Rfam assigns this 145-nucleotide RNA sequence from Phyllostomus discolor to the family "Small nucleolar RNA SNORA57". From the family's description: U99 belongs to the H/ACA class of snoRNAs which are thought to guide the sites of modification of uridines to pseudouridines, the target for this family is unknown. The match comes from Rfam's covariance-model search (84 bits). The source organism's lineage runs through Eukaryota, Chordata, Craniata, Vertebrata and Phyllostomus.

RNA sequence: CUUCCUCUUCUUGGCAGGGGUGGGCGUGCAGUCCCGGUCUCCAUGAUGUAUGGAGGCUGAGGGAAAGGGCUCUGACCCCUCCCCAUCACGUCUUCGGUGCUGACAGUUUCGUCUGCAGGUUUUCUCCUCAAGCUCCGGGACAUGG
Numbered sequence: 001c002u003u004c005c006u007c008u009u010c011u012u013g014g015c016a017g018g019g020g021u022g023g024g025c026g027u028g029c030a031g032u033c034c035c036g037g038u039c040u041c042c043a044u045g046a047u048g049u050a051u052g053g054a055g056g057c058u059g060a061g062g063g064a065a066a067g068g069g070c071u072c073u074g075a076c077c078c079c080u081c082c083c084c085a086u087c088a089c090g091u092c093u094u095c096g097g098u099g100c101u102g103a104c105a106g107u108u109u110c111g112u113c114u115g116c117a118g119g120u121u122u123u124c125u126c127c128u129c130a131a132g133c134u135c136c137g138g139g140a141c142a143u144g145g
Stems, first nucleotide, its partner, number of pairs: 001056005017041004021036004082137001086132001100119002104115003